[Rfam]
RNA sequence: GCUUGCAUUGGGCAAGUUUAUGCAGUUACCCACUGCGUAUUGACCUAGAACGUCACUUAAGGAGAAAACAAAUG
Numbered sequence: 001g002c003u004u005g006c007a008u009u010g011g012g013c014a015a016g017u018u019u020a021u022g023c024a025g026u027u028a029c030c031c032a033c034u035g036c037g038u039a040u041u042g043a044c045c046u047a048g049a050a051c052g053u054c055a056c057u058u059a060a061g062g063a064g065a066a067a068a069c070a071a072a073u074g
Stems, first nucleotide, its partner, number of pairs: 001017006019039007041055004